[Rfam]
RNA sequence: CCCUAGCCCGGAUUGCAGCGAAAAUCCUUUUUGAAUGAAGCGCAGCGGAGUUCAAAAAGAUUGCAGCGGAAAGCCGGAAAAGCU
Numbered sequence: 001c002c003c004u005a006g007c008c009c010g011g012a013u014u015g016c017a018g019c020g021a022a023a024a025u026c027c028u029u030u031u032u033g034a035a036u037g038a039a040g041c042g043c044a045g046c047g048g049a050g051u052u053c054a055a056a057a058a059g060a061u062u063g064c065a066g067c068g069g070a071a072a073g074c075c076g077g078a079a080a081a082g083c084u
Stems, first nucleotide, its partner, number of pairs: 009076003013072002018067002023062004029057008
RNA: Flavo-1 RNA